[Rfam]
Nucleotides: 080
Stems, first nucleotide, its partner, number of pairs: 022039003026035003058079009
Number, partner (000 for none) and nucleotide at each position: 001000g002000a003000a004000a005000u006000c007000u008000g009000u010000g011000a012000a013000a014000g015000c016000c017000a018000a019000u020000c021000a022039g023038g024037g025000c026035c027034u028033u029000c030000g031000g032000a033028a034027a035026g036000a037024c038023c039022c040000u041000u042000u043000a044000u045000a046000u047000g048000a049000u050000u051000u052000u053000u054000u055000g056000g057000a058079a059078g060077c061076u062075c063074u064073u065072g066071c067000u068000c069000a070000g071066g072065c073064a074063g075062g076061g077060g078059c079058u080000a
Shown here is an 80-nucleotide RNA sequence from Ancylostoma ceylanicum, a member of the family "SmY spliceosomal RNA". Rfam classes the family as a spliceosomal small nuclear RNA. The match comes from Rfam's covariance-model search (43 bits). On this family, see MacMorris et al., RNA 2007: "A novel family of C. elegans snRNPs contains proteins associated with trans-splicing". NCBI's taxonomy places the organism under Eukaryota, Metazoa, Rhabditina, Ancylostomatinae, Ancylostoma.